[Rfam]
MIR2617 microRNA precursor family: an 88-nucleotide RNA sequence from Medicago truncatula. The match comes from Rfam's covariance-model search (49 bits).
RNA sequence: AAGUAGUGUGACAUGCCCGUUGUUUGAUGAGCUCUGAUUAUUUUAUUUAUUAUUAAUGAUUUUUGGGAUAACGGGGUGUUACAAUUGG
Numbered sequence: 001a002a003g004u005a006g007u008g009u010g011a012c013a014u015g016c017c018c019g020u021u022g023u024u025u026g027a028u029g030a031g032c033u034c035u036g037a038u039u040a041u042u043u044u045a046u047u048u049a050u051u052a053u054u055a056a057u058g059a060u061u062u063u064u065g066g067g068a069u070a071a072c073g074g075g076g077u078g079u080u081a082c083a084a085u086u087g088g
Base pairs, nucleotide, nucleotide: 005085007083008082009081010080011079012078013077014076016075017074018073019072020071021070